[Rfam]
A member of the RNA family "Actino-pnp RNA" from Mycolicibacterium confluentis, 57 nucleotides long.
It is annotated as a cis-regulatory element.
Pairs were carried over by alignment from the consensus structure, which is taken from published work.
RNA sequence: GGCGGUCUUCGGUAGUGGCGGCCGGAUGACAUCCGACCGCUUCGAUCGACGGCCGUA
Numbered sequence: 001g002g003c004g005g006u007c008u009u010c011g012g013u014a015g016u017g018g019c020g021g022c023c024g025g026a027u028g029a030c031a032u033c034c035g036a037c038c039g040c041u042u043c044g045a046u047c048g049a050c051g052g053c054c055g056u057a
Stems, first nucleotide, its partner, number of pairs: 002056006009049005017041005023035005